This 104-nucleotide RNA from Hydrogenophaga sp. IBVHS1 belongs to the Rfam family "Glycine riboswitch aptamer".
NCBI's taxonomy places the organism under Bacteria, Pseudomonadati, Pseudomonadota, Betaproteobacteria, Hydrogenophaga.
Rfam's curators write: This family represents the bacterial glycine riboswitch.
[Rfam]
RNA sequence: GGCGUCCCCCCUGGAGAGAGGUGGCCCCCGAGGUCAUCCACCGAAGGAGCAAGCGCGGCAUCGCCCGCGUGAAUCUCUCAGGUAAAGCGGACAGUGGGGCAGCG
Numbered sequence: 001g002g003c004g005u006c007c008c009c010c011c012u013g014g015a016g017a018g019a020g021g022u023g024g025c026c027c028c029c030g031a032g033g034u035c036a037u038c039c040a041c042c043g044a045a046g047g048a049g050c051a052a053g054c055g056c057g058g059c060a061u062c063g064c065c066c067g068c069g070u071g072a073a074u075c076u077c078u079c080a081g082g083u084a085a086a087g088c089g090g091a092c093a094g095u096g097g098g099g100c101a102g103c104g
Stems, first nucleotide, its partner, number of pairs: 006099004011094003020038006040083003043079002047077003053070006